Record summary:
Rfam assigns this 80-nucleotide RNA sequence from Xenopus tropicalis to the family "mir-128 microRNA precursor family". Rfam links the family to the GO terms miRNA-mediated post-transcriptional gene silencing and RISC complex. The base pairs follow the family's consensus structure, which was predicted with RNAalifold. The family has 57 seed sequences and 1,337 matches in Rfam 15.1. On this family, see Chen et al., Genes Dev 2005: "The developmental miRNA profiles of zebrafish as determined by small RNA cloning".
RNA sequence: GUGCAGCUGGAACGGGGGCCGUUACACUGUAAGAGAGUGAGUAGUAGGUCUCACAGUGAACCGGUCUCUUUUCUUACUGU
Numbered sequence: 001g002u003g004c005a006g007c008u009g010g011a012a013c014g015g016g017g018g019c020c021g022u023u024a025c026a027c028u029g030u031a032a033g034a035g036a037g038u039g040a041g042u043a044g045u046a047g048g049u050c051u052c053a054c055a056g057u058g059a060a061c062c063g064g065u066c067u068c069u070u071u072u073c074u075u076a077c078u079g080u
Base pairs, nucleotide, nucleotide: 006077009074010073015068016067017066018065019064020063021062025058026057027056028055029054030053033052034051035050